[Rfam]
RNA sequence: GAUAAAGGGAGUGAAAAGCUCCCUCGCCGAAAGCCCAAGGUUUCCUGCGCAACGUUCAUCGGCGCAGGGUGAGUCGGCCCCUAAGGUGAGGCAGAAAUGCGUAGCUGAUGGGAAAUCGGUUAAUAUUCCGAUACCUUUGUAUAAUGCGAUGGGGGGACGGAGAAGGUUAGCUCGGCCGGGUGUUGGAUGUCCCGGUUUAAGCGUGUAGGCUGGUUCUUUAGGCAAAUCCGGAGAGCUUAGGUCGAGACGUGAUGACGAGUCCUCAUUGAGGAUGAAGUGAGUGAUACCAUGCUUCCAAGAAAAGCCUCUAAGCUUCAGUUAUAUAGAGACCGUACCGCAAACCGACACAGGUGGGCAGGAUGAGAAUUCUAAGGCGCU
Numbered sequence: 001g002a003u004a005a006a007g008g009g010a011g012u013g014a015a016a017a018g019c020u021c022c023c024u025c026g027c028c029g030a031a032a033g034c035c036c037a038a039g040g041u042u043u044c045c046u047g048c049g050c051a052a053c054g055u056u057c058a059u060c061g062g063c064g065c066a067g068g069g070u071g072a073g074u075c076g077g078c079c080c081c082u083a084a085g086g087u088g089a090g091g092c093a094g095a096a097a098u099g100c101g102u103a104g105c106u107g108a109u110g111g112g113a114a115a116u117c118g119g120u121u122a123a124u125a126u127u128c129c130g131a132u133a134c135c136u137u138u139g140u141a142u143a144a145u146g147c148g149a150u151g152g153g154g155g156g157a158c159g160g161a162g163a164a165g166g167u168u169a170g171c172u173c174g175g176c177c178g179g180g181u182g183u184u185g186g187a188u189g190u191c192c193c194g195g196u197u198u199a200a201g202c203g204u205g206u207a208g209g210c211u212g213g214u215u216c217u218u219u220a221g222g223c224a225a226a227u228c229c230g231g232a233g234a235g236c237u238u239a240g241g242u243c244g245a246g247a248c249g250u251g252a253u254g255a256c257g258a259g260u261c262c263u264c265a266u267u268g269a270g271g272a273u274g275a276a277g278u279g280a281g282u283g284a285u286a287c288c289a290u291g292c293u294u295c296c297a298a299g300a301a302a303a304g305c306c307u308c309u310a311a312g313c314u315u316c317a318g319u320u321a322u323a324u325a326g327a328g329a330c331c332g333u334a335c336c337g338c339a340a341a342c343c344g345a346c347a348c349a350g351g352u353g354g355g356c357a358g359g360a361u362g363a364g365a366a367u368u369c370u371a372a373g374g375c376g377c378u
Stems, first nucleotide, its partner, number of pairs: 006024006025376004033356004039336002044068006053061002075332003080111002085106003089102001091100003115132005135328011146313002151308004159295004165288003170282005175196006197255002201250004208243003213236007221229002259273005342351002358370003
Record summary:
Rfam assigns this 378-nucleotide part of an RNA from Sulfuricella denitrificans to the family "Bacterial large subunit ribosomal RNA". Pairs were carried over by alignment from the consensus structure, which is taken from published work. It scores 2832 bits against the family's covariance model. Taxonomically the source falls in Sulfuricella denitrificans (Bacteria, Betaproteobacteria, Nitrosomonadales, Sulfuricella).